[Rfam]
RNA sequence: GAGGUAUGAGGCUACAGUCUAAUAGUCACUGAAGACUGAUUAGAUCCAACUCUGACCUCAGCACAGCC
Numbered sequence: 001g002a003g004g005u006a007u008g009a010g011g012c013u014a015c016a017g018u019c020u021a022a023u024a025g026u027c028a029c030u031g032a033a034g035a036c037u038g039a040u041u042a043g044a045u046c047c048a049a050c051u052c053u054g055a056c057c058u059c060a061g062c063a064c065a066g067c068c
Base pairs, nucleotide, nucleotide: 001059002058003057004056
The record is a 68-nucleotide RNA sequence, which matches "Small nucleolar RNA SNORD19" in Rfam. A reference for the family is Huttenhofer et al. (2001), "RNomics: an experimental approach that identifies 201 candidates for novel, small, non-messenger RNAs in mouse", EMBO J. It is one of the family's seed sequences.